[Rfam]
Nucleotides: 109
Stems, first nucleotide, its partner, number of pairs: 006103007013059003018054007028041005061094003066091002070087005
Number, partner (000 for none) and nucleotide at each position: 001000a002000u003000u004000g005000c006103c007102g008101c009100c010099g011098g012097a013059c014058g015057g016000g017000a018054g019053c020052g021051g022050u023049c024048c025000u026000g027000a028041g029040g030039g031038u032037u033000g034000g035000g036000g037032a038031g039030c040029c041028c042000g043000a044000u045000g046000a047000c048024g049023g050022a051021u052020c053019g054018u055000g056000a057015c058014u059013g060000a061094g062093a063092g064000c065000c066091g067090g068000u069000u070087c071086g072085g073084g074083u075000u076000c077000a078000c079000g080000g081000g082000a083074g084073c085072c086071c087070g088000g089000g090067c091066c092063c093062u094061c095000g096000c097012u098011c099010c100009g101008g102007c103006g104000a105000a106000g107000a108000a109000g

This 109-nucleotide sequence belongs to the Rfam family "Actinomyces-1 RNA".
By type it is a small RNA.
The family's consensus secondary structure is taken from published work.